Rfam assigns this 92-nucleotide RNA from Pseudoroseicyclus tamaricis to the family "Rhodo-rpoB RNA". The family's RNA type in Rfam is cis-regulatory element. A search with the family's covariance model found it, with a score of 44 bits. The base pairs follow the family's consensus structure, which is taken from published work.

[Rfam]
RNA sequence: AGGUCGGGAAAGAGCCCUUGGGUCGGGCUCACGUAUAGACCUCCCUCCCGUUCUCGAAGGGGCGCUGCCGCGUGAGCCCCGGCGCGGCACCC
Numbered sequence: 001a002g003g004u005c006g007g008g009a010a011a012g013a014g015c016c017c018u019u020g021g022g023u024c025g026g027g028c029u030c031a032c033g034u035a036u037a038g039a040c041c042u043c044c045c046u047c048c049c050g051u052u053c054u055c056g057a058a059g060g061g062g063c064g065c066u067g068c069c070g071c072g073u074g075a076g077c078c079c080c081g082g083c084g085c086g087g088c089a090c091c092c
Stems, first nucleotide, its partner, number of pairs: 001042005012030006064091001066089007